[Rfam]
RNA: c-di-GMP-I riboswitch aptamer
RNA sequence: AAUGUGAAAAGGCAAACUCUUCUAAAGGGGAGGACGCAAAGCAUAGGGUCUAAGGUUAAACUAACUAUGAUCGCCUGGCUACCAAA
Numbered sequence: 001a002a003u004g005u006g007a008a009a010a011g012g013c014a015a016a017c018u019c020u021u022c023u024a025a026a027g028g029g030g031a032g033g034a035c036g037c038a039a040a041g042c043a044u045a046g047g048g049u050c051u052a053a054g055g056u057u058a059a060a061c062u063a064a065c066u067a068u069g070a071u072c073g074c075c076u077g078g079c080u081a082c083c084a085a086a
Stems, first nucleotide, its partner, number of pairs: 012037002017032006040080003045076003048071003055065004